[Rfam]
RNA sequence: UCGAAGCUCCAUCUACAAAUGGAUAAGACUUUGGUCUUAGUAUAGGUGUAUACGAGUUUUUGAUUUGAAAGUAAAGGAGCAAUAGCCAAAUUCUUGAUAGAAUAAGAAAUUGGUUAUUGUUCCUUUAUU
Numbered sequence: 001u002c003g004a005a006g007c008u009c010c011a012u013c014u015a016c017a018a019a020u021g022g023a024u025a026a027g028a029c030u031u032u033g034g035u036c037u038u039a040g041u042a043u044a045g046g047u048g049u050a051u052a053c054g055a056g057u058u059u060u061u062g063a064u065u066u067g068a069a070a071g072u073a074a075a076g077g078a079g080c081a082a083u084a085g086c087c088a089a090a091u092u093c094u095u096g097a098u099a100g101a102a103u104a105a106g107a108a109a110u111u112g113g114u115u116a117u118u119g120u121u122c123c124u125u126u127a128u129u
Base pairs, nucleotide, nucleotide: 008023009022010021011020012019073126074125075124076123077122078121079120080119081118082117083116084115085114087112088111089110091108092107093106094105095104
The family of this 129-nucleotide RNA is "Plastid-psbA-1 3UTR RNA". It is one of the family's seed sequences. Plastid psbA-1 is a non-coding RNA (ncRNA) present in plastids. It was identified in inverted repeat sequences in the 3 prime untranslate region (3UTR) of photosystem II quinone-binding protein (psbA). A reference for the family is Richter et al. (2023), "Retrograde signaling in plants: A critical review focusing on the GUN pathway and beyond", Plant Commun. The family is grouped with related families in Rfam's "Plastid-psbA 3UTR RNA clan".